[Rfam]
RNA: mir-393 microRNA precursor family
Organism: Glycine max
RNA sequence: AAAGGAGAAAUCCAAAGGGAUAGCAUGAUCCCAAAUAAAAUUAAUAUUUUGAGUGAGAAAGAUAGAAGAACAUUGAAGCUUGGAUUUGGGAUCAAUGCGAUCCCUUUGGAUGCCUCCUC
Numbered sequence: 001a002a003a004g005g006a007g008a009a010a011u012c013c014a015a016a017g018g019g020a021u022a023g024c025a026u027g028a029u030c031c032c033a034a035a036u037a038a039a040a041u042u043a044a045u046a047u048u049u050u051g052a053g054u055g056a057g058a059a060a061g062a063u064a065g066a067a068g069a070a071c072a073u074u075g076a077a078g079c080u081u082g083g084a085u086u087u088g089g090g091a092u093c094a095a096u097g098c099g100a101u102c103c104c105u106u107u108g109g110a111u112g113c114c115u116c117c118u119c
Stems, first nucleotide, its partner, number of pairs: 003118004010111012023098003026094006035086001